About this RNA: A member of the RNA family "T-box leader" from Priestia veravalensis, 223 nucleotides long. Uncharged tRNA acts as the effector for transcription antitermination of genes in the T-box leader family. Its family is annotated with tRNA binding in the Gene Ontology.

[Rfam]
RNA sequence: UAUAGUACGGAGAUAGGGACAGUAGUUUCUUACAUGAUUACGUUUAGCGAACCGAGGAAGGUGAGAGCUCGGUCUAAUCUAAGAAACGAAUAUCACCCUGGAGUAUUGCUGCUGAAACGAAGUAAGCAGCGACGUGUUAUUCACGUUACGAAUGCUGAGAGGACAAACGGAAGUGCUGUUUGUCUACAAGGGUGGUACCGCGGGAGACCUUCUCGUCCCUUUU
Numbered sequence: 001u002a003u004a005g006u007a008c009g010g011a012g013a014u015a016g017g018g019a020c021a022g023u024a025g026u027u028u029c030u031u032a033c034a035u036g037a038u039u040a041c042g043u044u045u046a047g048c049g050a051a052c053c054g055a056g057g058a059a060g061g062u063g064a065g066a067g068c069u070c071g072g073u074c075u076a077a078u079c080u081a082a083g084a085a086a087c088g089a090a091u092a093u094c095a096c097c098c099u100g101g102a103g104u105a106u107u108g109c110u111g112c113u114g115a116a117a118c119g120a121a122g123u124a125a126g127c128a129g130c131g132a133c134g135u136g137u138u139a140u141u142c143a144c145g146u147u148a149c150g151a152a153u154g155c156u157g158a159g160a161g162g163a164c165a166a167a168c169g170g171a172a173g174u175g176c177u178g179u180u181u182g183u184c185u186a187c188a189a190g191g192g193u194g195g196u197a198c199c200g201c202g203g204g205a206g207a208c209c210u211u212c213u214c215g216u217c218c219c220u221u222u223u
Stems, first nucleotide, its partner, number of pairs: 007104002015099004025087006039076002042074001051073006107131007133145003162184009189220004200216005
Annotation: It scores 126 bits against the family's covariance model.